[Rfam]
RNA sequence: UAAAUUCAUACAGAGGCUGCCUAUAUAAUGUCAUAAUAAGGUUGACAAGUUUCUACCCAGAGCCGUAAAUUCUGGACUAUAAGCACGAUCAAGUGGCGU
Numbered sequence: 001u002a003a004a005u006u007c008a009u010a011c012a013g014a015g016g017c018u019g020c021c022u023a024u025a026u027a028a029u030g031u032c033a034u035a036a037u038a039a040g041g042u043u044g045a046c047a048a049g050u051u052u053c054u055a056c057c058c059a060g061a062g063c064c065g066u067a068a069a070u071u072c073u074g075g076a077c078u079a080u081a082a083g084c085a086c087g088a089u090c091a092a093g094u095g096g097c098g099u
Base pairs, nucleotide, nucleotide: 018085019084020083022081023080024079025078029047030046031045032044033043057075058074059073060072061071062070
A member of the RNA family "Purine riboswitch aptamer" from Lactobacillus selangorensis, 99 nucleotides long. The source organism's lineage runs through Bacteria, Bacillati, Lactobacillales, Lactobacillaceae and Lactobacillus.